[Rfam]
Shown here is a 102-nucleotide sequence from Mesorhizobium denitrificans, a member of the family "TPP riboswitch aptamer (THI element)".
Nucleotides: 102
Stems, first nucleotide, its partner, number of pairs: 006090005011052004017030005037045002058083003064077004
Number, partner (000 for none) and nucleotide at each position: 001000c002000c003000c004000g005000c006090u007089c008088u009087a010086a011052c012051g013050g014049g015000g016000u017030g018029c019028c020027g021026c022000g023000c024000c025000u026021g027020c028019g029018g030017c031000u032000g033000a034000g035000a036000g037045g038044c039000a040000u041000a042000u043000c044038g045037c046000c047000a048000a049014c050013c051012c052011g053000c054000u055000g056000a057000a058083c059082c060081u061000g062000a063000u064077c065076c066075g067074g068000u069000u070000u071000g072000u073000a074067c075066c076065g077064g078000c079000g080000g081060a082059g083058g084000g085000a086010u087009u088008a089007g090006a091000u092000g093000c094000u095000u096000c097000g098000g099000u100000c101000a102000c